Notes: Glycine riboswitch aptamer: a 112-nucleotide sequence from Brevundimonas subvibrioides. The source organism's lineage runs through Bacteria, Pseudomonadota, Alphaproteobacteria, Brevundimonas and Brevundimonas subvibrioides. This family represents the bacterial glycine riboswitch. The pairing is the family consensus, mapped onto this sequence.
RNA sequence: CUCGAUCUCGCGGGAGAGAUCGGGCCGUCCAGCCUCCCCACUACCGGACGGACCCGGAGCCGAAGGCGCAACCGCCCCGGAAACGCUCAGGCAAACGGACCGCGAGAACACU
Numbered sequence: 001c002u003c004g005a006u007c008u009c010g011c012g013g014g015a016g017a018g019a020u021c022g023g024g025c026c027g028u029c030c031a032g033c034c035u036c037c038c039c040a041c042u043a044c045c046g047g048a049c050g051g052a053c054c055c056g057g058a059g060c061c062g063a064a065g066g067c068g069c070a071a072c073c074g075c076c077c078c079g080g081a082a083a084c085g086c087u088c089a090g091g092c093a094a095a096c097g098g099a100c101c102g103c104g105a106g107a108a109c110a111c112u
Stems, first nucleotide, its partner, number of pairs: 006107008020057004059092003062088002066086003072080002